[Rfam]
Nucleotides: 078
Stems, first nucleotide, its partner, number of pairs: 001077005
Number, partner (000 for none) and nucleotide at each position: 001077g002076u003075u004074c005073c006000c007000a008000a009000u010000g011000a012000u013000g014000c015000u016000u017000u018000c019000u020000a021000u022000u023000u024000u025000a026000c027000c028000a029000u030000g031000c032000u033000a034000a035000u036000g037000c038000u039000g040000a041000u042000a043000u044000a045000a046000u047000u048000u049000g050000a051000u052000u053000a054000u055000u056000a057000c058000u059000u060000c061000u062000a063000u064000u065000g066000u067000a068000c069000u070000g071000a072000g073005g074004g075003a076002a077001c078000u
Shown here is a 78-nucleotide RNA from Vigna radiata, a member of the family "Small nucleolar RNA snoR53Y".
The literature on the family includes a 2001 paper in RNA by Brown et al., "Multiple snoRNA gene clusters from Arabidopsis".
Lineage of the source: Eukaryota > Viridiplantae > Streptophytina > fabids > Vigna radiata.